Shown here is a 196-nucleotide RNA, a member of the family "IMES-1 RNA motif".

RNA sequence: GGUAACGAGAACUGGAAAGGAACUGCAGAACCAAAGAAAGGAAACGUUACACAAGGAAGAGCACUGAAAGGUGAAAGUUCAAGAAAGCUUAGCAUGCAAUCAAGCAAACUUGACCACCAAGAGUAAAAGAGAUCUUACUCAAGGAUGCAAAAGAUAAUCUCACUUUUGACACCUACAGUACUCGAUUUAAAAGAAA
Number, nucleotide and partner (000 for none) at each position: 001g000002g050003u049004a048005a000006c000007g000008a000009g000010a000011a000012c040013u039014g000015g000016a000017a000018a000019g000020g000021a000022a000023c000024u000025g000026c000027a000028g000029a000030a000031c000032c000033a000034a000035a000036g000037a000038a000039a013040g012041g000042a000043a000044a000045c000046g000047u000048u004049a003050c002051a000052c000053a000054a000055g000056g000057a000058a000059g000060a000061g000062c000063a000064c000065u177066g176067a000068a000069a174070g173071g000072u000073g000074a000075a000076a000077g000078u000079u113080c112081a111082a110083g109084a000085a000086a000087g105088c104089u103090u102091a000092g000093c000094a000095u000096g000097c000098a000099a000100u000101c000102a090103a089104g088105c087106a000107a000108a000109c083110u082111u081112g080113a079114c000115c000116a000117c000118c000119a000120a000121g140122a139123g138124u137125a136126a000127a000128a000129g161130a160131g159132a158133u157134c000135u000136u125137a124138c123139u122140c121141a000142a000143g000144g000145a000146u000147g000148c168149a167150a166151a165152a164153g163154a000155u000156a000157a133158u132159c131160u130161c129162a000163c153164u152165u151166u150167u149168g148169a000170c000171a000172c000173c070174u069175a000176c066177a065178g000179u000180a000181c000182u000183c000184g000185a000186u000187u000188u000189a000190a000191a000192a000193g000194a000195a000196a000
Rfam's curators put it in the seed alignment.